[Rfam]
RNA sequence: CUACUGUGGCUGCACUGGGGGCGGGAGGCGGGGAAAUGGGUUUACUGGGCUGUACUGGUGUCCCCUGUCCCCCCCCUGCUUCCAGGGU
Numbered sequence: 001c002u003a004c005u006g007u008g009g010c011u012g013c014a015c016u017g018g019g020g021g022c023g024g025g026a027g028g029c030g031g032g033g034a035a036a037u038g039g040g041u042u043u044a045c046u047g048g049g050c051u052g053u054a055c056u057g058g059u060g061u062c063c064c065c066u067g068u069c070c071c072c073c074c075c076c077u078g079c080u081u082c083c084a085g086g087g088u
Stems, first nucleotide, its partner, number of pairs: 004085001006083001008082002012079001018077004027069003030065002033062002036059002039056001
About this RNA: NoRC associated RNA, pRNA: an 88-nucleotide sequence from Galbula dea. The base pairs follow the family's consensus structure, which is taken from published work. The source organism's lineage runs through Eukaryota, Chordata, Sarcopterygii, Dinosauria and Galbula. The literature on the family includes a 2008 paper in EMBO Rep by Mayer et al., "The structure of NoRC-associated RNA is crucial for targeting the chromatin remodelling complex NoRC to the nucleolus".